[Rfam]
Nucleotides: 116
Base pairs, nucleotide, nucleotide: 005112007110008109009108011106012105013104014103015102016101017100018099022096023095024094025093029089030088031087032086033085034084036082
Number, partner (000 for none) and nucleotide at each position: 001000a002000g003000a004000u005112g006000c007110a008109u009108u010000a011106c012105u013104g014103g015102g016101c017100a018099a019000u020000u021000c022096c023095u024094u025093c026000u027000u028000c029089g030088g031087c032086a033085g034084u035000u036082g037000g038000g039000u040000a041000c042000u043000g044000c045000g046000c047000c048000a049000u050000a051000c052000g053000u054000g055000a056000a057000u058000g059000u060000c061000u062000a063000a064000c065000a066000u067000g068000g069000a070000g071000g072000c073000a074000u075000a076000g077000u078000a079000a080000g081000c082036c083000u084034a085033u086032u087031g088030c089029c090000a091000a092000a093025g094024g095023a096022g097000a098000u099018u100017u101016g102015c103014c104013c105012g106011g107000c108009a109008a110007u111000u112005c113000a114000c115000c116000g
Shown here is a 116-nucleotide sequence from Tetracentron sinense, a member of the family "mir-399 microRNA precursor family". Rfam 15.1 lists 2,396 matches to the family in 221 species. About the family: mir-399 was identified in both Arabidopsis thaliana and Oryza sativa computationally and was later experimentally verified. mir-399 is thought to target mRNAs coding for a phosphatase transporter. The mature sequence is excised from the 3' arm of the hairpin.